Annotation
Rfam assigns this 297-nucleotide RNA sequence from Cavia porcellus to the family "Mason-Pfizer monkey virus packaging signal". The literature on the family includes a 2004 paper in Virus Res by Mustafa et al., "Mutational analysis of the predicted secondary RNA structure of the Mason-Pfizer monkey virus packaging signal". Rfam classes the family as a cis-regulatory element. A search with the family's covariance model found it, with a score of 79 bits.
RNA sequence: UGGCGCCUGUCAUGGGGCUCUUGGCAUGAAGGGCUCAAUGAGGGAGCCAUCCUGAGACACACGCAUUGAAGUGAAACUAAAAGUUUUGUGACCAACGCUACGCAGGAGCCUGUUGCACCGCUAGAGUCAUGGUAAGUGGACAGCAAUCCUUUUCCCUUUUCUCUGGCAUGGGUCAGGCAUUAAGCGACCAUAAAUGCUUUGUAUCAAGUUUAAGUAAAGCUUUAAAGACAAGAGGGAUAAAGGCUAAAGAAAAAGACUUAUUGCAGUAUUUUCAAUUUAUUCAUAAGGUUUGCCCUU
Numbered sequence: 001u002g003g004c005g006c007c008u009g010u011c012a013u014g015g016g017g018c019u020c021u022u023g024g025c026a027u028g029a030a031g032g033g034c035u036c037a038a039u040g041a042g043g044g045a046g047c048c049a050u051c052c053u054g055a056g057a058c059a060c061a062c063g064c065a066u067u068g069a070a071g072u073g074a075a076a077c078u079a080a081a082a083g084u085u086u087u088g089u090g091a092c093c094a095a096c097g098c099u100a101c102g103c104a105g106g107a108g109c110c111u112g113u114u115g116c117a118c119c120g121c122u123a124g125a126g127u128c129a130u131g132g133u134a135a136g137u138g139g140a141c142a143g144c145a146a147u148c149c150u151u152u153u154c155c156c157u158u159u160u161c162u163c164u165g166g167c168a169u170g171g172g173u174c175a176g177g178c179a180u181u182a183a184g185c186g187a188c189c190a191u192a193a194a195u196g197c198u199u200u201g202u203a204u205c206a207a208g209u210u211u212a213a214g215u216a217a218a219g220c221u222u223u224a225a226a227g228a229c230a231a232g233a234g235g236g237a238u239a240a241a242g243g244c245u246a247a248a249g250a251a252a253a254a255g256a257c258u259u260a261u262u263g264c265a266g267u268a269u270u271u272u273c274a275a276u277u278u279a280u281u282c283a284u285a286a287g288g289u290u291u292g293c294c295c296u297u
Stems, first nucleotide, its partner, number of pairs: 006032003012027003033047004083133003087129002096124001097121002102116004139173001181224003184220002232272004237267002241259003245255001285296001287294002